[Rfam]
RNA sequence: CACUAGCCAAACAAACACGAGUUGCAAGUAUUGGAAGUAAAAGUCUCGUUA
Dot-bracket structure: ......[[.[[[....(((((......]]..]]]..........)))))..
Background
The family of this 51-nucleotide sequence from Polerovirus PBMYV is "Exoribonuclease-resistant RNA (xrRNA) plant-infecting virus (class 3)". Rfam links the family to the GO term viral RNA genome replication. It is annotated as a cis-regulatory element. For this family Rfam cites "The crystal structure of a Polerovirus exoribonuclease-resistant RNA shows how diverse sequences are integrated into a conserved fold" (Steckelberg et al., RNA, 2020). From the family's description: Exoribonuclease-resistant RNA (xrRNA) plant-infecting virus (class 3) is a ncRNA that was reported in Plant viruses.